Description:
Small nucleolar RNA SNORA8: a 140-nucleotide RNA sequence from Megalops atlanticus. A search with the family's covariance model found it, with a score of 49 bits. Gene Ontology terms of the family: nucleolus and RNA processing. The base pairs follow the family's consensus structure, which was predicted with RNAfold. Rfam 15.1 lists 1,490 matches to the family in 610 species. Rfam classes the family as an H/ACA-box small nucleolar RNA. From the family's description: ACA8 is a member of the H/ACA class of snoRNA that guide the sites of modification of uridines to pseudouridines.
[Rfam]
RNA sequence: AGCACUGUAUGGUAUCUGCAUCCAGCUGUUCCCCUGAGCUGGACUGUUCAUUACGCAGUGCAAGAGCAACUCAGCAUCUGGCAUCGUUGGUCUCCAUGCUUUAUUGUGCCCGGGGUCCUGGUAUUUGUGCUGAGACAAGC
Numbered sequence: 001a002g003c004a005c006u007g008u009a010u011g012g013u014a015u016c017u018g019c020a021u022c023c024a025g026c027u028g029u030u031c032c033c034c035u036g037a038g039c040u041g042g043a044c045u046g047u048u049c050a051u052u053a054c055g056c057a058g059u060g061c062a063a064g065a066g067c068a069a070c071u072c073a074g075c076a077u078c079u080g081g082c083a084u085c086g087u088u089g090g091u092c093u094c095c096a097u098g099c100u101u102u103a104u105u106g107u108g109c110c111c112g113g114g115g116u117c118c119u120g121g122u123a124u125u126u127g128u129g130c131u132g133a134g135a136c137a138a139g140c
Base pairs, nucleotide, nucleotide: 002061003060004059005058006057007056018047019046020045023042024040025039026038027037065128068125069124071121072120073119074118080110081109082108083107084106